RNA: mir-17 microRNA precursor family
RNA sequence: GUCCUUGUGUUAAGGUGCAUCUAGUGCAGUUAGUGAAGUAGUGUAGAAUCUACUGCCCUAAAUGCUCCUUCUGGCACAAGCUG
Numbered sequence: 001g002u003c004c005u006u007g008u009g010u011u012a013a014g015g016u017g018c019a020u021c022u023a024g025u026g027c028a029g030u031u032a033g034u035g036a037a038g039u040a041g042u043g044u045a046g047a048a049u050c051u052a053c054u055g056c057c058c059u060a061a062a063u064g065c066u067c068c069u070u071c072u073g074g075c076a077c078a079a080g081c082u083g
Stems, first nucleotide, its partner, number of pairs: 004080004009075003013069003017065004022060003026056002029054001031052003